[Rfam]
A member of the RNA family "Bacillaceae-1 RNA" from Bacillus sp. HNG, 69 nucleotides long. The base pairs follow the family's consensus structure, which is taken from published work.

RNA sequence: AAAUGAGGAAACUGACCGACUAAAAUCGCCACGUCCUGUGGCAACGUCGGCACUAGCACUUCCUGUGCG
Numbered sequence: 001a002a003a004u005g006a007g008g009a010a011a012c013u014g015a016c017c018g019a020c021u022a023a024a025a026u027c028g029c030c031a032c033g034u035c036c037u038g039u040g041g042c043a044a045c046g047u048c049g050g051c052a053c054u055a056g057c058a059c060u061u062c063c064u065g066u067g068c069g
Base pairs, nucleotide, nucleotide: 016050017049018048019047020046028042029041030040031039032038056068057067058066059065
The source organism's lineage runs through Bacteria, Bacillati, Bacillota, Bacilli and Bacillus.